The record is a 515-nucleotide part of an RNA from an uncultured marine eukaryote, which matches "Eukaryotic small subunit ribosomal RNA" in Rfam. Rfam 15.1 lists 75,755 matches to the family in 2,556 species. Rfam's curators put it in the seed alignment. Its Rfam clan is "SSU clan".
RNA sequence: CAGUUGAAACGCUCGUAGUCUGAUUCAAUCCGCAAGGAAAUAAUCGCUCGCCUCGAAAUACAGUGCAGUCAUCCGUCUGGGAAUAUCCUCCCCCCCCUACCACCGGGUGGGGGUUCCGGGGUUUUUCCCCUGAAAAAUUUAGGGUUUCAGGCAGGCAAACCUUAAAACUCCGCCAUGGAAGAAGAGGAAAAAACUUAGCUGUUUGGGGGCUUGAAAAGAAAAAAUUUUUUAGGGACCAGUCGAAGGCCAUUUUACUUUAAUCGAAAAGAGUGGAAUUUUUGGGCCGGUUUAAUGCCAAACCAAAAGCGGAAGGCUUCUGCCCAAGGAUGUUUUCUUUGAUCAAGAACGAAGGUCAAGGUAUCGAAGACGAUCAGAUACCGUCGUAGUCCUGACUGUAAACUAUGCCGACUGGGGUUCAAUGAUAAGAAAUAAGAUAUCGUUGGGGAUCCAGAGAGAAAUCAAAGUUUUUGGGUUCUGGGGGAAAGUAUGGUCGCAAGGCUGAAACUUGAAGGAAU
Numbered sequence: 001c002a003g004u005u006g007a008a009a010c011g012c013u014c015g016u017a018g019u020c021u022g023a024u025u026c027a028a029u030c031c032g033c034a035a036g037g038a039a040a041u042a043a044u045c046g047c048u049c050g051c052c053u054c055g056a057a058a059u060a061c062a063g064u065g066c067a068g069u070c071a072u073c074c075g076u077c078u079g080g081g082a083a084u085a086u087c088c089u090c091c092c093c094c095c096c097c098u099a100c101c102a103c104c105g106g107g108u109g110g111g112g113g114u115u116c117c118g119g120g121g122u123u124u125u126u127c128c129c130c131u132g133a134a135a136a137a138u139u140u141a142g143g144g145u146u147u148c149a150g151g152c153a154g155g156c157a158a159a160c161c162u163u164a165a166a167a168c169u170c171c172g173c174c175a176u177g178g179a180a181g182a183a184g185a186g187g188a189a190a191a192a193a194c195u196u197a198g199c200u201g202u203u204u205g206g207g208g209g210c211u212u213g214a215a216a217a218g219a220a221a222a223a224a225u226u227u228u229u230u231a232g233g234g235a236c237c238a239g240u241c242g243a244a245g246g247c248c249a250u251u252u253u254a255c256u257u258u259a260a261u262c263g264a265a266a267a268g269a270g271u272g273g274a275a276u277u278u279u280u281g282g283g284c285c286g287g288u289u290u291a292a293u294g295c296c297a298a299a300c301c302a303a304a305a306g307c308g309g310a311a312g313g314c315u316u317c318u319g320c321c322c323a324a325g326g327a328u329g330u331u332u333u334c335u336u337u338g339a340u341c342a343a344g345a346a347c348g349a350a351g352g353u354c355a356a357g358g359u360a361u362c363g364a365a366g367a368c369g370a371u372c373a374g375a376u377a378c379c380g381u382c383g384u385a386g387u388c389c390u391g392a393c394u395g396u397a398a399a400c401u402a403u404g405c406c407g408a409c410u411g412g413g414g415u416u417c418a419a420u421g422a423u424a425a426g427a428a429a430u431a432a433g434a435u436a437u438c439g440u441u442g443g444g445g446a447u448c449c450a451g452a453g454a455g456a457a458a459u460c461a462a463a464g465u466u467u468u469u470g471g472g473u474u475c476u477g478g479g480g481g482a483a484a485g486u487a488u489g490g491u492c493g494c495a496a497g498g499c500u501g502a503a504a505c506u507u508g509a510a511g512g513a514a515u
Stems, first nucleotide, its partner, number of pairs: 001477003009474001011347001013345002018340003233334003237329002240326002245322002248319002251298002256292002259289005267278003303315001306314002352393004357388001362386001366382004404473003407466003411449003416443008453460002479507003489500004